Notes: Shown here is a 107-nucleotide RNA sequence from Pseudonocardia sp. CNS-004, a member of the family "Guanidine-I riboswitch aptamer". Rfam's curators write: This family represents a conserved RNA structure found upstream of the ykkC and yxkD genes in Bacillus subtilis and related genes in other bacteria. Taxonomically the source falls in Pseudonocardia (Bacteria, Bacillati, Pseudonocardiales, Pseudonocardiaceae).

[Rfam]
RNA sequence: GUGAGGCGCGUCUAGGGUUCCGCCCCGCUCGACGGGGGCCUGGUCCGAGAGACGCAGGCGGCCCCCGCACGACGGCCGCCCCACGGCGGGACAAAAGCCCGGGAGAC
Numbered sequence: 001g002u003g004a005g006g007c008g009c010g011u012c013u014a015g016g017g018u019u020c021c022g023c024c025c026c027g028c029u030c031g032a033c034g035g036g037g038g039c040c041u042g043g044u045c046c047g048a049g050a051g052a053c054g055c056a057g058g059c060g061g062c063c064c065c066c067g068c069a070c071g072a073c074g075g076c077c078g079c080c081c082c083a084c085g086g087c088g089g090g091a092c093a094a095a096a097g098c099c100c101g102g103g104a105g106a107c
Base pairs, nucleotide, nucleotide: 008055009054010053011052012051015046016045020043021042022040023037024036025035026034027033057080058079059078060077061076062075063074082102084105088100089099090098